Annotation: The family of this 94-nucleotide RNA sequence from Sorghum bicolor is "MIR5387 microRNA precursor family". Its family is annotated with RISC complex and miRNA-mediated post-transcriptional gene silencing in the Gene Ontology.

RNA sequence: CCGUAACACGAGCCGGGACUAAAGGGUCCUUGCCCCGACAGCCAUGACAUGUAGCCGUUGGGCAGGACCCUUUAGUCCCGGCGCGUGUGACGAG
Number, nucleotide and partner (000 for none) at each position: 001c000002c000003g091004u090005a000006a088007c087008a086009c085010g084011a000012g082013c081014c080015g079016g078017g077018a076019c075020u074021a073022a072023a071024g070025g069026g068027u067028c000029c066030u065031u000032g000033c000034c062035c061036c060037g000038a058039c057040a000041g000042c000043c000044a000045u051046g050047a000048c000049a000050u046051g045052u000053a000054g000055c000056c000057g039058u038059u000060g036061g035062g034063c000064a000065g030066g029067a027068c026069c025070c024071u023072u022073u021074a020075g019076u018077c017078c016079c015080g014081g013082c012083g000084c010085g009086u008087g007088u006089g000090a004091c003092g000093a000094g000